[Rfam]
RNA sequence: UGAUAACUGCAUUCGAGUGUGUGGAUAGAGUUGUUUUAAAUUAUCUAGCACCAUUCGAAUUCAGUGCUCG
Numbered sequence: 001u002g003a004u005a006a007c008u009g010c011a012u013u014c015g016a017g018u019g020u021g022u023g024g025a026u027a028g029a030g031u032u033g034u035u036u037u038a039a040a041u042u043a044u045c046u047a048g049c050a051c052c053a054u055u056c057g058a059a060u061u062c063a064g065u066g067c068u069c070g
Stems, first nucleotide, its partner, number of pairs: 001070003005065001007064003011060005017054003021051003026047004